Description:
Small nucleolar RNA SNORA73 family: a 205-nucleotide RNA from Equus asinus. Rfam links the family to the GO terms nucleolus and RNA processing. It is annotated as an H/ACA-box small nucleolar RNA. The family has 66 seed sequences and 2,326 matches in Rfam 15.1. A search with the family's covariance model found it, with a score of 74 bits. About the family: U17 (SNORA73A and SNORA73B) also known as E1 belongs to the H/ACA class of small nucleolar RNAs (snoRNAs). Vertebrate U17 is intron-encoded and ranges in length from 200-230 nucleotides, longer than most snoRNAs.

RNA sequence: UAACUAUGGACGACCCCUGGGGGCCCCCAGGGGCUCCACCCGUGGGGCCCAGAGGAGCGCAGCUCAGGUGCAGUGCUGUAGCGUCCUGACCCACGACGUUGGAGAUGAGCUGUCUCAGUCUUGGGACUGCGGAGGACAUGUCCUGUAUAUUCCUUGUCUUGUCAGUACCUGCUUGCUGAGGAGAAAAAACAUGUAGGGCACAGUU
Numbered sequence: 001u002a003a004c005u006a007u008g009g010a011c012g013a014c015c016c017c018u019g020g021g022g023g024c025c026c027c028c029a030g031g032g033g034c035u036c037c038a039c040c041c042g043u044g045g046g047g048c049c050c051a052g053a054g055g056a057g058c059g060c061a062g063c064u065c066a067g068g069u070g071c072a073g074u075g076c077u078g079u080a081g082c083g084u085c086c087u088g089a090c091c092c093a094c095g096a097c098g099u100u101g102g103a104g105a106u107g108a109g110c111u112g113u114c115u116c117a118g119u120c121u122u123g124g125g126a127c128u129g130c131g132g133a134g135g136a137c138a139u140g141u142c143c144u145g146u147a148u149a150u151u152c153c154u155u156g157u158c159u160u161g162u163c164a165g166u167a168c169c170u171g172c173u174u175g176c177u178g179a180g181g182a183g184a185a186a187a188a189a190c191a192u193g194u195a196g197g198g199c200a201c202a203g204u205u
Stems, first nucleotide, its partner, number of pairs: 001101004007096001008041002012037001014033003018029004044094001046092002053087004059079003062074002142197007158183003162179004
Dot-bracket structure: ((((..(((..(.(((.((((....)))).)))...)..))..(.((.....((((..(((((.........))..)))....))))...)).).).))))........................................(((((((.........(((.((((..........)))).))).......)))))))........